[Rfam]
RNA: Small Cajal body specific RNA 8
Organism: Microcebus murinus
RNA sequence: UGGGAGGGCUGAGCUACAACCAAAUUGGGCUAAGUAGGUCUAAUUGUCACCAUACUCCCUAAAAUAAACUGCCUUUGAUGACCGGAUGAAUUGAAUGAAAUCAUAACGGGCAGACGCAGGGCAGACAGUA
Numbered sequence: 001u002g003g004g005a006g007g008g009c010u011g012a013g014c015u016a017c018a019a020c021c022a023a024a025u026u027g028g029g030c031u032a033a034g035u036a037g038g039u040c041u042a043a044u045u046g047u048c049a050c051c052a053u054a055c056u057c058c059c060u061a062a063a064a065u066a067a068a069c070u071g072c073c074u075u076u077g078a079u080g081a082c083c084g085g086a087u088g089a090a091u092u093g094a095a096u097g098a099a100a101u102c103a104u105a106a107c108g109g110g111c112a113g114a115c116g117c118a119g120g121g122c123a124g125a126c127a128g129u130a
Stems, first nucleotide, its partner, number of pairs: 002059005021046003027040002030037001069124007082109003086104004